[Rfam]
RNA sequence: GGCCCUAUAGCUCAGUUGGUUAGAGCGCACGACUCAUAAUCGUUAGGUCCCUGGUUCGAGUCCAGGUGGGGCCA
Number, nucleotide and partner (000 for none) at each position: 001g073002g072003c071004c070005c069006u068007a067008u000009a000010g026011c025012u024013c023014a000015g000016u000017u000018g000019g000020u000021u000022a000023g013024a012025g011026c010027g000028c000029a043030c042031g041032a040033c000034u000035c000036a000037u000038a000039a000040u032041c031042g030043u029044u000045a000046g000047g000048u000049c000050c066051c065052u064053g063054g062055u000056u000057c000058g000059a000060g000061u000062c054063c053064a052065g051066g050067u007068g006069g005070g004071g003072c002073c001074a000